[Rfam]
RNA sequence: AUGAGUGCCUGUCCACCCCGAACGUUUCCCCGCUGCGCCAGACUCGACGGCCGUUUUAUCGGUCCCGUGCGGGUCGCCAGGUGCAACGCGAGCACUAUAGGCGAGCCGCUUGCCCCGUACGCCGGGGCGGCGGCUUUUUCA
Number, nucleotide and partner (000 for none) at each position: 001a000002u000003g000004a000005g000006u000007g038008c037009c035010u000011g033012u032013c000014c000015a000016c000017c000018c000019c000020g000021a000022a000023c000024g000025u000026u000027u000028c000029c000030c000031c000032g012033c011034u000035g009036c000037g008038c007039c000040a000041g000042a000043c069044u000045c067046g066047a000048c000049g000050g000051c062052c061053g060054u000055u000056u000057u000058a000059u000060c053061g052062g051063u000064c000065c000066c046067g045068u000069g043070c000071g000072g000073g000074u000075c103076g102077c101078c100079a000080g000081g000082u000083g000084c000085a000086a000087c000088g000089c000090g000091a000092g000093c000094a000095c000096u000097a000098u000099a000100g078101g077102c076103g075104a135105g134106c133107c132108g131109c130110u000111u129112g128113c127114c126115c125116c124117g000118u000119a000120c000121g000122c000123c000124g116125g115126g114127g113128c112129g111130g109131c108132g107133g106134c105135u104136u000137u000138u000139u000140c000141a000
RNA: Burkholderia sRNA 2